[Rfam]
RNA sequence: AUGCAUCCAGCAGGAUUCGAACCUGCGAGUUCUCCAAUUAUGAGUUGGGCGCUUUAACCGCUCAACCAUGGCAUG
Numbered sequence: 001a002u003g004c005a006u007c008c009a010g011c012a013g014g015a016u017u018c019g020a021a022c023c024u025g026c027g028a029g030u031u032c033u034c035c036a037a038u039u040a041u042g043a044g045u046u047g048g049g050c051g052c053u054u055u056a057a058c059c060g061c062u063c064a065a066c067c068a069u070g071g072c073a074u075g
Stems, first nucleotide, its partner, number of pairs: 004075003007071002010026005040069003044066008

Plastid-ycf2 5UTR RNA: a 75-nucleotide RNA from Chara braunii.
Plastid ycf2 is a non-coding RNA (ncRNA) recognised in plastids.
The source organism's lineage runs through Eukaryota, Viridiplantae, Streptophyta, Characeae and Chara.